The record is an 84-nucleotide sequence from Vespula pensylvanica, which matches "mir-184 microRNA precursor family" in Rfam. Rfam 15.1 lists 948 matches to the family in 823 species. The match comes from Rfam's covariance-model search (70 bits). The family's consensus secondary structure was predicted with PFOLD. A reference for the family is Chen et al. (2005), "The developmental miRNA profiles of zebrafish as determined by small RNA cloning", Genes Dev.
RNA sequence: GUGCCCAAAGCCCCUUAUCAUUCUCCUGUCCGGUGUACAAUCGUUAAACGACUGGACGGAGAACUGAUAAGGGCCCGAGGGUCA
Numbered sequence: 001g002u003g004c005c006c007a008a009a010g011c012c013c014c015u016u017a018u019c020a021u022u023c024u025c026c027u028g029u030c031c032g033g034u035g036u037a038c039a040a041u042c043g044u045u046a047a048a049c050g051a052c053u054g055g056a057c058g059g060a061g062a063a064c065u066g067a068u069a070a071g072g073g074c075c076c077g078a079g080g081g082u083c084a
Stems, first nucleotide, its partner, number of pairs: 012073009021063006029055002